Rfam assigns this 99-nucleotide sequence from Sesamum indicum to the family "Small nucleolar RNA R32/R81/Z41". Taxonomically the source falls in Sesamum (Eukaryota, Streptophyta, Spermatophyta, Gunneridae). The literature on the family includes a 2001 paper in J Mol Biol by Barneche et al., "Identification of 66 box C/D snoRNAs in Arabidopsis thaliana: extensive gene duplications generated multiple isoforms predicting new ribosomal RNA 2'-O-methylation sites". Its family is annotated with RNA processing and nucleolus in the Gene Ontology. The family has 6 seed sequences and 238 matches in Rfam 15.1.
RNA sequence: GGAUGAAAAUGAUGAAGUGAUUGAAGUGUGAUGGGGAUCCUCUUUCACCAUCUGAUCGAAUAACUAUUUUCACUUCGCUACGUUCUUUCUGAUUCAUCC
Numbered sequence: 001g002g003a004u005g006a007a008a009a010u011g012a013u014g015a016a017g018u019g020a021u022u023g024a025a026g027u028g029u030g031a032u033g034g035g036g037a038u039c040c041u042c043u044u045u046c047a048c049c050a051u052c053u054g055a056u057c058g059a060a061u062a063a064c065u066a067u068u069u070u071c072a073c074u075u076c077g078c079u080a081c082g083u084u085c086u087u088u089c090u091g092a093u094u095c096a097u098c099c
Base pairs, nucleotide, nucleotide: 004096005095006094007093